Shown here is a 134-nucleotide RNA from Acrocephalus arundinaceus, a member of the family "Small nucleolar RNA SNORA57". Rfam classes the family as an H/ACA-box small nucleolar RNA. Rfam 15.1 lists 1,736 matches to the family in 530 species. Lineage of the source: Eukaryota > Deuterostomia > Chordata > Dinosauria > Acrocephalus. Rfam describes the family as follows. U99 belongs to the H/ACA class of snoRNAs which are thought to guide the sites of modification of uridines to pseudouridines, the target for this family is unknown. A search with the family's covariance model found it, with a score of 112 bits. Rfam links the family to the GO terms nucleolus and RNA processing.
RNA sequence: CCUCCCGUUCUUGGCGGGUCCCGGCUGUGCCGUGCCGGGCUCCGUAAUGUGCGGAGGGAAAGAAACGAGCGGCGCGAAGUCUUCGGUGCCGGCGGCCGCAUCCGCCGGUCCCACCCUCACACGCCGGGACAAAG
Numbered sequence: 001c002c003u004c005c006c007g008u009u010c011u012u013g014g015c016g017g018g019u020c021c022c023g024g025c026u027g028u029g030c031c032g033u034g035c036c037g038g039g040c041u042c043c044g045u046a047a048u049g050u051g052c053g054g055a056g057g058g059a060a061a062g063a064a065a066c067g068a069g070c071g072g073c074g075c076g077a078a079g080u081c082u083u084c085g086g087u088g089c090c091g092g093c094g095g096c097c098g099c100a101u102c103c104g105c106c107g108g109u110c111c112c113a114c115c116c117u118c119a120c121a122c123g124c125c126g127g128g129a130c131a132a133a134g
Base pairs, nucleotide, nucleotide: 001057002056003055004054005053015044016043017042018041020039022037023036024035025034070126071125072124073123074122089108090107091106092105093104094103095102